[Rfam]
RNA: MIR1435 microRNA precursor family
RNA sequence: GAACUUUGUCCUAAGCCAAACUUCUCUAAUUUUGACCAAGUUAAUAGAAAAAUAUGUUAACAUCUAAAGUACCAGAUAAAUGCACUAUCAAGUUAUUUCAUGGUGGAAUGAAAUUAAUUUGAUGUUGUAUAUGUUCGUGUAUUUUUCUAUAAACUUAAUCAAAAUUAGAGAAGUUGGACUUAGGGCAAAAUUAA
Numbered sequence: 001g002a003a004c005u006u007u008g009u010c011c012u013a014a015g016c017c018a019a020a021c022u023u024c025u026c027u028a029a030u031u032u033u034g035a036c037c038a039a040g041u042u043a044a045u046a047g048a049a050a051a052a053u054a055u056g057u058u059a060a061c062a063u064c065u066a067a068a069g070u071a072c073c074a075g076a077u078a079a080a081u082g083c084a085c086u087a088u089c090a091a092g093u094u095a096u097u098u099c100a101u102g103g104u105g106g107a108a109u110g111a112a113a114u115u116a117a118u119u120u121g122a123u124g125u126u127g128u129a130u131a132u133g134u135u136c137g138u139g140u141a142u143u144u145u146u147c148u149a150u151a152a153a154c155u156u157a158a159u160c161a162a163a164a165u166u167a168g169a170g171a172a173g174u175u176g177g178a179c180u181u182a183g184g185g186c187a188a189a190a191u192u193a194a
Stems, first nucleotide, its partner, number of pairs: 005189005011183005017177001019175008031163005045149008055139003059135005065129002068126001073121005